RNA sequence: ACGGUCAGAAGCUUGCGUACAGGGGAGAAACAGUUUUCAUUACCCUUGGAGAAGGUCUGAGAAAAACCUUGCAGCUAUUGCUGUUUUGGCUCUUGCUGGGCAUCGCCUGUUAAUUUUGCAGGGAUUUUUCUGGCGAGUUUGGGGUUUCAAGUUGUGUUUUGGUUAUUAGGUUAUUUUCAAAUAGUUUGGAUAGAACAUUGAUUUUACCAGAAAUCCUUAAUGCUUUCCUAUGGAAAAGUAUUGAAAUUGUUUGAUUCCAAACUUUUUGGAAUACUAAUUCCAGUUUUAUAAACCAUCUUGAGAUUUCUUUCUUGCUGGGAAACAAGGUGUUGUUUUCUUUUAAAAGGAAACUUAUGUAGUGCGAUACGCAAGGCAAAGAUCAUCUUUGUAACUCAAUUCAGACUACUCUUUGUCCGU
Numbered sequence: 001a002c003g004g005u006c007a008g009a010a011g012c013u014u015g016c017g018u019a020c021a022g023g024g025g026a027g028a029a030a031c032a033g034u035u036u037u038c039a040u041u042a043c044c045c046u047u048g049g050a051g052a053a054g055g056u057c058u059g060a061g062a063a064a065a066a067c068c069u070u071g072c073a074g075c076u077a078u079u080g081c082u083g084u085u086u087u088g089g090c091u092c093u094u095g096c097u098g099g100g101c102a103u104c105g106c107c108u109g110u111u112a113a114u115u116u117u118g119c120a121g122g123g124a125u126u127u128u129u130c131u132g133g134c135g136a137g138u139u140u141g142g143g144g145u146u147u148c149a150a151g152u153u154g155u156g157u158u159u160u161g162g163u164u165a166u167u168a169g170g171u172u173a174u175u176u177u178c179a180a181a182u183a184g185u186u187u188g189g190a191u192a193g194a195a196c197a198u199u200g201a202u203u204u205u206a207c208c209a210g211a212a213a214u215c216c217u218u219a220a221u222g223c224u225u226u227c228c229u230a231u232g233g234a235a236a237a238g239u240a241u242u243g244a245a246a247u248u249g250u251u252u253g254a255u256u257c258c259a260a261a262c263u264u265u266u267u268g269g270a271a272u273a274c275u276a277a278u279u280c281c282a283g284u285u286u287u288a289u290a291a292a293c294c295a296u297c298u299u300g301a302g303a304u305u306u307c308u309u310u311c312u313u314g315c316u317g318g319g320a321a322a323c324a325a326g327g328u329g330u331u332g333u334u335u336u337c338u339u340u341u342a343a344a345a346g347g348a349a350a351c352u353u354a355u356g357u358a359g360u361g362c363g364a365u366a367c368g369c370a371a372g373g374c375a376a377a378g379a380u381c382a383u384c385u386u387u388g389u390a391a392c393u394c395a396a397u398u399c400a401g402a403c404u405a406c407u408c409u410u411u412g413u414c415c416g417u
Base pairs, nucleotide, nucleotide: 001417002416003415004414007411008410009409012372013371014370015369016368017367018366020048021047022046023045024044025038026037027036028035029034057401058400059399060398061397066286069283089101090100091099092098103197198282200280201279203277204276219265220264373389374388375387376386377385378384379383
This 417-nucleotide RNA sequence from Furculomyces boomerangus belongs to the Rfam family "Nuclear RNase P". Rfam describes the family as follows. Ribonuclease P (RNase P) is a ubiquitous endoribonuclease, found in archaea, bacteria and eukarya as well as chloroplasts and mitochondria. Its best characterised activity is the generation of mature 5'-ends of tRNAs by cleaving the 5'-leader elements of precursor-tRNAs. Cellular RNase Ps are ribonucleoproteins. RNA from bacterial RNase Ps retains its catalytic activity in the absence of the protein subunit, i.e. it is a ribozyme. Isolated eukaryotic and archaeal RNase P RNA has not been shown to retain its catalytic function, but is still essential for the catalytic activity of the holoenzyme. Although the archaeal and eukaryotic holoenzyme s have a much greater protein content than the bacterial ones, the RNA cores from all the three lineages are homologous -- helices corresponding to P1, P2, P3, P4, and P10/11 are common to all cellular RNase P RNAs. Yet, there is considerable sequence variation, particularly among the eukaryotic RNAs. The family's RNA type in Rfam is ribozyme. The match comes from Rfam's covariance-model search (64 bits). The organism belongs to Furculomyces, within Eukaryota.